The family of this 310-nucleotide RNA from Anisodus acutangulus is "Plant signal recognition particle RNA".
RNA sequence: GCCGAGUUCAGUAACGUGGGCUUGUAACCUUUGUAGGGGCAUCAAGGUGAUGGCAUGUUGGGCUGUCCCAGUUGGUUGAGCUUGGUGGGCUUAAUUUCUGGCCUGCCCUGUCCAAGCUUAGAGUUGGAUCACGUGGCCCAAUCGAAAGAAUGGGCCUGCUGGAUCCCUAAAGUAGGGGGGACUGCGUGAGGCUGGGUUUACAGAACAACGAACAGCUCUCGCUCUGUGCAGUGGAAGGGAUAACAAAGCCUGUGUCGGCCAGGCCCAAUAGAGAAUGCUAGUGUGUGGGGACUUGGCCCAGCCAAUCUAG
Numbered sequence: 001g002c003c004g005a006g007u008u009c010a011g012u013a014a015c016g017u018g019g020g021c022u023u024g025u026a027a028c029c030u031u032u033g034u035a036g037g038g039g040c041a042u043c044a045a046g047g048u049g050a051u052g053g054c055a056u057g058u059u060g061g062g063c064u065g066u067c068c069c070a071g072u073u074g075g076u077u078g079a080g081c082u083u084g085g086u087g088g089g090c091u092u093a094a095u096u097u098c099u100g101g102c103c104u105g106c107c108c109u110g111u112c113c114a115a116g117c118u119u120a121g122a123g124u125u126g127g128a129u130c131a132c133g134u135g136g137c138c139c140a141a142u143c144g145a146a147a148g149a150a151u152g153g154g155c156c157u158g159c160u161g162g163a164u165c166c167c168u169a170a171a172g173u174a175g176g177g178g179g180g181a182c183u184g185c186g187u188g189a190g191g192c193u194g195g196g197u198u199u200a201c202a203g204a205a206c207a208a209c210g211a212a213c214a215g216c217u218c219u220c221g222c223u224c225u226g227u228g229c230a231g232u233g234g235a236a237g238g239g240a241u242a243a244c245a246a247a248g249c250c251u252g253u254g255u256c257g258g259c260c261a262g263g264c265c266c267a268a269u270a271g272a273g274a275a276u277g278c279u280a281g282u283g284u285g286u287g288g289g290g291a292c293u294u295g296g297c298c299c300a301g302c303c304a305a306u307c308u309a310g
Stems, first nucleotide, its partner, number of pairs: 001040003004023007028037003043310001045308004051304003057298001058296003061292001063290002066287001071282006078266001080264006089256001092254002098252001100250003104245002107238002111235004116229002119226006126166005133159001135156006142149002167172001174219004183212001185210003192203003
A search with the family's covariance model found it, with a score of 159 bits. By type it is a non-coding RNA gene. The family's consensus secondary structure is taken from published work. Lineage of the source: Eukaryota > eudicotyledons > Solanales > Hyoscyameae > Anisodus.